[Rfam]
Nucleotides: 093
Stems, first nucleotide, its partner, number of pairs: 010092004016087001018043003022038005046059005061084006
Number, partner (000 for none) and nucleotide at each position: 001000a002000c003000a004000g005000u006000a007000c008000a009000a010092a011091c012090u013089g014000a015000u016087c017000a018043g019042g020041c021000g022038a023037u024036g025035g026034a027000a028000g029000u030000u031000u032000u033000a034026u035025c036024c037023a038022u039000a040000g041020g042019c043018c044000g045000g046059g047058c048057u049056g050055c051000u052000u053000c054000g055050g056049c057048g058047g059046c060000a061084g062083c063082a064081g065080a066079u067000g068000a069000a070000a071000g072000c073000u074000g075000a076000c077000a078000c079066a080065u081064c082063u083062g084061c085000g086000g087016g088000a089013c090012a091011g092010u093000a